[Rfam]
Shown here is an 89-nucleotide RNA sequence from Ureibacillus sinduriensis, a member of the family "c-di-GMP-I riboswitch aptamer". Pairs were carried over by alignment from the consensus structure, which is taken from published work. Lineage of the source: Bacteria > Bacillota > Bacilli > Caryophanales > Ureibacillus sinduriensis.

RNA sequence: CUGUCAUAAGGGCAAAUCUAUCGAAAGGUAGAGACGCAAAGCCUCAGAUCUAAGGCGUGUUAUCAUGCUAGGAUGGCUGGGUUACCGUA
Numbered sequence: 001c002u003g004u005c006a007u008a009a010g011g012g013c014a015a016a017u018c019u020a021u022c023g024a025a026a027g028g029u030a031g032a033g034a035c036g037c038a039a040a041g042c043c044u045c046a047g048a049u050c051u052a053a054g055g056c057g058u059g060u061u062a063u064c065a066u067g068c069u070a071g072g073a074u075g076g077c078u079g080g081g082u083u084a085c086c087g088u089a
Stems, first nucleotide, its partner, number of pairs: 012037002017032006040083004045079003048074003055068004